[Rfam]
Shown here is a 118-nucleotide RNA from Liquorilactobacillus oeni, a member of the family "trpB ncRNA motif". NCBI's taxonomy places the organism under Bacteria, Bacillati, Lactobacillales, Lactobacillaceae, Liquorilactobacillus oeni. The sequence is in the family's curated seed alignment. trpB ncRNA motif was reported as a strong cis regulatory motif candidate, with potential to be a cis regulatory riboswitch type, it have been identified in Firmicutes and Fusobacteria. The motif have been recognised upstream of an uncharacterized ABC transporter with strong homology to amino acid transporters. It is also occasionally located upstream of trpB gene, that codes for a tryptophan synthase. On this family, see Narunsky et al., Nucleic Acids Res 2024: "The discovery of novel noncoding RNAs in 50 bacterial genomes".
RNA sequence: UGCGUAGACUUGCUUUAAUUCUUUGGUUUUAAAGAGAGUCUAUGCUGGUAUGAUGAUUCCUGAACGACAGAGAUCUAUCUAACCGCGUAGUCUGCACACUAUGCGGUUUUUUGUUAUU
Numbered sequence: 001u002g003c004g005u006a007g008a009c010u011u012g013c014u015u016u017a018a019u020u021c022u023u024u025g026g027u028u029u030u031a032a033a034g035a036g037a038g039u040c041u042a043u044g045c046u047g048g049u050a051u052g053a054u055g056a057u058u059c060c061u062g063a064a065c066g067a068c069a070g071a072g073a074u075c076u077a078u079c080u081a082a083c084c085g086c087g088u089a090g091u092c093u094g095c096a097c098a099c100u101a102u103g104c105g106g107u108u109u110u111u112u113g114u115u116a117u118u
Base pairs, nucleotide, nucleotide: 002045003044004043005042006041007040008039009038010037011036013034014033015032016031017030018029082107083106084105085104086103087102088101089100090099091098